[Rfam]
RNA sequence: GGAAGAGAAUCGUCUCCGGUGGGGCGUCCGGACUUCAAAUCCGGGUGAGGCAGACAAGACUGUCUCGGGUGGGUUCGACUCCCAUUCUCUUCC
Numbered sequence: 001g002g003a004a005g006a007g008a009a010u011c012g013u014c015u016c017c018g019g020u021g022g023g024g025c026g027u028c029c030g031g032a033c034u035u036c037a038a039a040u041c042c043g044g045g046u047g048a049g050g051c052a053g054a055c056a057a058g059a060c061u062g063u064c065u066c067g068g069g070u071g072g073g074u075u076c077g078a079c080u081c082c083c084a085u086u087c088u089c090u091u092c093c
Stems, first nucleotide, its partner, number of pairs: 001093009011026006027045006047066005070084004
The family of this 93-nucleotide RNA from Dyella soli is "Selenocysteine transfer RNA".
Gene Ontology term of the family: triplet codon-amino acid adaptor activity.
Pairs were carried over by alignment from the consensus structure, which is taken from published work.
The source organism's lineage runs through Bacteria, Pseudomonadati, Pseudomonadota, Rhodanobacteraceae and Dyella.